[Rfam]
RNA sequence: UGGUAGAUGCACCCUGAUUUCAACCCCGGAGUUCACGCUCUGGGGUUUUUUUUG
Numbered sequence: 001u002g003g004u005a006g007a008u009g010c011a012c013c014c015u016g017a018u019u020u021c022a023a024c025c026c027c028g029g030a031g032u033u034c035a036c037g038c039u040c041u042g043g044g045g046u047u048u049u050u051u052u053u054g
Base pairs, nucleotide, nucleotide: 002013003012004011023046024045025044026043027042028041029040030039031038032037
RNA: Nitrogen stress-induced RNA 1
Organism: Microcoleus sp. FACHB-1515